[Rfam]
RNA: Small nucleolar RNA Z107/R87
RNA sequence: GAUCGCAAUGAUGACAUUUAAAAUUCAAGCUCAACAGACCGGAUCACAAUCUUUCUUUCUGAAAGCUUGUAUGGCGAUAACCGCUGAACUGAGCGAUC
Number, nucleotide and partner (000 for none) at each position: 001g098002a097003u096004c095005g094006c093007a000008a000009u000010g000011a000012u000013g000014a000015c000016a000017u000018u000019u000020a000021a000022a000023a000024u000025u000026c000027a000028a000029g000030c000031u000032c000033a000034a000035c000036a000037g000038a000039c000040c000041g000042g000043a000044u000045c000046a000047c000048a000049a000050u000051c000052u000053u000054u000055c000056u000057u000058u000059c000060u000061g000062a000063a000064a000065g000066c000067u000068u000069g000070u000071a000072u000073g000074g000075c000076g000077a000078u000079a000080a000081c000082c000083g000084c000085u000086g000087a000088a000089c000090u000091g000092a000093g006094c005095g004096a003097u002098c001